[Rfam]
RNA: Small nucleolar RNA snoR99
Organism: Durio zibethinus
RNA sequence: GUGCUUUAGGGAUGAACAAACCCUCAUACUCAUUAUCCAUCUAAAUCACUUUUUCAGUGGCCUUUUUUGGUGGCUUAUUGAUCAUCAUGGGAUGUAAAAUGC
Dot-bracket structure: ...................................(.((((............(((((((..............))))))).........)))).)......